[Rfam]
RNA: Clostridiales-1 RNA
RNA sequence: UGAUGCCAGGGUCCCAAGGUCUGAGCCCACAUGAGCUUGCUCUAUAGUGGGCUCAGACCUUGGGAUCCGCCCCGAUAUGAGCAUAAAAGUGGGAUGUAUAUCCCACGAUAUGCGAAUAGCGGGUAGGAUUGUGGGUUGCCGAGUGCCAGUGGCACUCGUUUGGCAACGACCGGAGUGAAACGGAGAUGCGAAGCACGCAACAAUCCGUAGGCAUCA
Number, nucleotide and partner (000 for none) at each position: 001u216002g215003a214004u213005g212006c211007c210008a000009g000010g067011g066012u065013c064014c000015c000016a061017a060018g059019g058020u057021c056022u055023g054024a053025g052026c051027c050028c049029a048030c047031a000032u000033g042034a041035g040036c000037u000038u000039g000040c035041u034042c033043u000044a000045u000046a000047g030048u029049g028050g027051g026052c025053u024054c023055a022056g021057a020058c019059c018060u017061u016062g000063g000064g013065a012066u011067c010068c000069g000070c000071c123072c122073c121074g120075a000076u118077a117078u116079g000080a000081g113082c112083a111084u110085a000086a000087a000088a000089g106090u105091g104092g103093g102094a101095u100096g000097u000098a000099u000100a095101u094102c093103c092104c091105a090106c089107g000108a000109u000110a084111u083112g082113c081114g000115a000116a078117u077118a076119g000120c074121g073122g072123g071124u000125a000126g206127g205128a204129u203130u202131g201132u200133g000134g000135g000136u193137u000138g000139c000140c000141g000142a000143g000144u000145g000146c000147c000148a000149g000150u000151g000152g000153c000154a000155c000156u000157c000158g000159u000160u000161u000162g000163g000164c000165a000166a000167c000168g000169a000170c000171c000172g000173g000174a000175g000176u000177g000178a000179a000180a000181c000182g000183g000184a000185g000186a000187u000188g000189c000190g000191a000192a000193g136194c000195a000196c000197g000198c000199a000200a132201c131202a130203a129204u128205c127206c126207g000208u000209a000210g007211g006212c005213a004214u003215c002216a001